[Rfam]
RNA sequence: GAUAAAUAGCAUAUAAGAAUUCGUAUAAUAUUGGGAAUAUGGCCCAAAAGUUUCUACCAAGCUACCGUAAAUAGCUUGACUACGAUUUGAUAAUAAAAUGCA
Numbered sequence: 001g002a003u004a005a006a007u008a009g010c011a012u013a014u015a016a017g018a019a020u021u022c023g024u025a026u027a028a029u030a031u032u033g034g035g036a037a038u039a040u041g042g043c044c045c046a047a048a049a050g051u052u053u054c055u056a057c058c059a060a061g062c063u064a065c066c067g068u069a070a071a072u073a074g075c076u077u078g079a080c081u082a083c084g085a086u087u088u089g090a091u092a093a094u095a096a097a098a099u100g101c102a
Stems, first nucleotide, its partner, number of pairs: 018088002021085005029049001031047005058078007

Shown here is a 102-nucleotide sequence from Niallia endozanthoxylica, a member of the family "Purine riboswitch aptamer".
The source organism's lineage runs through Bacteria, Bacillota, Caryophanales, Bacillaceae and Niallia.
The base pairs follow the family's consensus structure, which is taken from published work.
About the family: Riboswitches are metabolite binding domains within certain messenger RNAs that serve as precision sensors for their corresponding targets.